The record is an 80-nucleotide RNA from Roseobacter sp. CCS2, which matches "chrB-a RNA" in Rfam. The family has 163 seed sequences and 347 matches in Rfam 15.1.
RNA sequence: GGUCUGGGGUCCGCGAACACCCCGUAAGGCCCCGGCCAAAGCAUCGCAUCCACUGACACCUUCAGAAAGGAUGCACGAUG
Numbered sequence: 001g002g003u004c005u006g007g008g009g010u011c012c013g014c015g016a017a018c019a020c021c022c023c024g025u026a027a028g029g030c031c032c033c034g035g036c037c038a039a040a041g042c043a044u045c046g047c048a049u050c051c052a053c054u055g056a057c058a059c060c061u062u063c064a065g066a067a068a069g070g071a072u073g074c075a076c077g078a079u080g
Stems, first nucleotide, its partner, number of pairs: 005024006046074006